[Rfam]
RNA sequence: GACAAAUGAAUAUGGAUACCGUAGACCGUAGGUGCUAUCGUGCUACCGCUACCCGGCGUCGAUCGACGCGUGUCGGUAGUCACAGGGGCAUGAGAGCUUAAUUUCCUACCGAGGUGUGUGAAUAGAGCUUUUCUUGUAUGCCGGGCGUCAUGUGCGCCCCUGCGUAGAAGCGAGAUCGUGCCAUGCCUCCGCAACGUCUGCGGAGGCAUUUCUUAUGUCUUCG
Numbered sequence: 001g002a003c004a005a006a007u008g009a010a011u012a013u014g015g016a017u018a019c020c021g022u023a024g025a026c027c028g029u030a031g032g033u034g035c036u037a038u039c040g041u042g043c044u045a046c047c048g049c050u051a052c053c054c055g056g057c058g059u060c061g062a063u064c065g066a067c068g069c070g071u072g073u074c075g076g077u078a079g080u081c082a083c084a085g086g087g088g089c090a091u092g093a094g095a096g097c098u099u100a101a102u103u104u105c106c107u108a109c110c111g112a113g114g115u116g117u118g119u120g121a122a123u124a125g126a127g128c129u130u131u132u133c134u135u136g137u138a139u140g141c142c143g144g145g146c147g148u149c150a151u152g153u154g155c156g157c158c159c160c161u162g163c164g165u166a167g168a169a170g171c172g173a174g175a176u177c178g179u180g181c182c183a184u185g186c187c188u189c190c191g192c193a194a195c196g197u198c199u200g201c202g203g204a205g206g207c208a209u210u211u212c213u214u215a216u217g218u219c220u221u222c223g
Stems, first nucleotide, its partner, number of pairs: 028109005034097003184208010